[Rfam]
RNA sequence: AGGUUUUCUGAAGCAGUGUCUUUAAAAACCU
Numbered sequence: 001a002g003g004u005u006u007u008c009u010g011a012a013g014c015a016g017u018g019u020c021u022u023u024a025a026a027a028a029c030c031u
Base pairs, nucleotide, nucleotide: 001031002030003029004028005027006026007025009024010023011022012021013020014018

Rfam assigns this 31-nucleotide RNA sequence from Brachypodius melanocephalos to the family "Iron response element II". Gene Ontology term of the family: response to iron ion. Rfam's curators write: IRE, TFRC, SLC40A1, SDHB, SLC11A2, CDC42BPA, ACO2, ALAS2_H.SAPIENS, CDC14A, EPAS1, ALAS2, qoxD, Hao1, NDUFS1, transferrin, Aconitate. A search with the family's covariance model found it, with a score of 31 bits. The family's consensus secondary structure is taken from published work.